Annotation: This 67-nucleotide RNA sequence from Larimichthys crocea belongs to the Rfam family "mir-33 microRNA precursor family". The source organism's lineage runs through Eukaryota, Eumetazoa, Craniata, Gnathostomata and Larimichthys.
RNA sequence: CUGUGGUGCAUUGUAGUUGCAUUGCAUGUUAUGCUCACACGUGCAGUGGAUCUGCUUUGCAACACAG
Number, nucleotide and partner (000 for none) at each position: 001c067002u066003g065004u064005g000006g063007u061008g060009c059010a058011u000012u000013g055014u054015a053016g052017u000018u000019g000020c000021a047022u046023u045024g044025c043026a042027u041028g000029u000030u000031a000032u000033g000034c000035u000036c000037a000038c000039a000040c000041g027042u026043g025044c024045a023046g022047u021048g000049g000050a000051u000052c016053u015054g014055c013056u000057u000058u010059g009060c008061a007062a000063c006064a004065c003066a002067g001

The base pairs follow the family's consensus structure, which was predicted with PFOLD. The literature on the family includes a 2009 paper in BMC Genomics by Li et al., "Direct sequencing and expression analysis of a large number of miRNAs in Aedes aegypti and a multi-species survey of novel mosquito miRNAs". The match comes from Rfam's covariance-model search (55 bits).